[Rfam]
Rfam assigns this 283-nucleotide RNA sequence from Theropithecus gelada to the family "Mason-Pfizer monkey virus packaging signal". On this family, see Mustafa et al., Virus Res 2004: "Mutational analysis of the predicted secondary RNA structure of the Mason-Pfizer monkey virus packaging signal". The match comes from Rfam's covariance-model search (226 bits). Rfam 15.1 lists 2,921 matches to the family in 53 species. Rfam classes the family as a cis-regulatory element. The base pairs follow the family's consensus structure, which was predicted with PFOLD.

RNA sequence: UGGCGCCCGAAAAGGGACCUGGAAAUGAGGGACUCCAUGAGGAAGAGGACGCCAGACGACGGUCCACCACUAACAAAGACAAUAGAAAGUAAACUCUUCCGAUCACCGCGGGAACCUACCGCUUCUGAAUCGAAGGUAAGUGACGCAUCCGAAAUGGGACAAGAAUUAAGUCAACAUCAAAUUUAUGUAGGACAAUUAAAAGAGGCUUUAAAGAUACGAGGAGUAAGGGUUAAAGGUAAUGAUUUGUUUAAAUUUUUUGAUUUUGUAAAAGACACUUGCCCUU
Dot-bracket structure: .....(((....(............)..)))....(.(.......).)............................................(((.((....(((..((((.......))))...)).)...))))).......(..((((...)))).)......((((((...............................))).)))......((((((((..((((((.......))))))......))))))))........((.(.(....).).))